A member of the RNA family "Rhodo-rpoB RNA" from Pseudooceanicola atlanticus, 93 nucleotides long.
The match comes from Rfam's covariance-model search (72 bits).
The base pairs follow the family's consensus structure, which is taken from published work.
The source organism's lineage runs through Bacteria, Pseudomonadati, Alphaproteobacteria, Paracoccaceae and Pseudooceanicola.
It is annotated as a cis-regulatory element.
RNA sequence: GGAUCGGGAGGUCACCAUUCGGGAAGGUGGCCAGGCAUGGAUCCGAACCCCCUGUUUCUAAGGGCGCAGUGCCGGGGCCCGACGGCAUUCGCA
Numbered sequence: 001g002g003a004u005c006g007g008g009a010g011g012u013c014a015c016c017a018u019u020c021g022g023g024a025a026g027g028u029g030g031c032c033a034g035g036c037a038u039g040g041a042u043c044c045g046a047a048c049c050c051c052c053u054g055u056u057u058c059u060a061a062g063g064g065c066g067c068a069g070u071g072c073c074g075g076g077g078c079c080c081g082a083c084g085g086c087a088u089u090c091g092c093a
Stems, first nucleotide, its partner, number of pairs: 001044005010032007066092002069089001070087005